This 78-nucleotide RNA sequence from Hordeum vulgare belongs to the Rfam family "Small nucleolar RNA Z199". Gene Ontology terms of the family: nucleolus and RNA processing. For this family Rfam cites "The high diversity of snoRNAs in plants: identification and comparative study of 120 snoRNA genes from Oryza sativa" (Chen et al., Nucleic Acids Res, 2003). By type it is a C/D-box small nucleolar RNA. About the family: snoZ199 is a C/D box small nucleolar RNA, which acts as a methylation guide RNA for sites on 18S and 25S rRNA. Rice snoZ199 is reported to be homologous to Arabidopsis snoR13.
RNA sequence: GGUUCAAGUGAUGAUGAGAAACUGCAACAAUAUGAAGGAGUUACACUCCCUUGAUUCGUAGUUUUAAGUCUGAUGAUU
Dot-bracket structure: ((.(((..............................((((.....))))........................)))))
Numbered sequence: 001g002g003u004u005c006a007a008g009u010g011a012u013g014a015u016g017a018g019a020a021a022c023u024g025c026a027a028c029a030a031u032a033u034g035a036a037g038g039a040g041u042u043a044c045a046c047u048c049c050c051u052u053g054a055u056u057c058g059u060a061g062u063u064u065u066a067a068g069u070c071u072g073a074u075g076a077u078u
Stems, first nucleotide, its partner, number of pairs: 001078002004076003037049004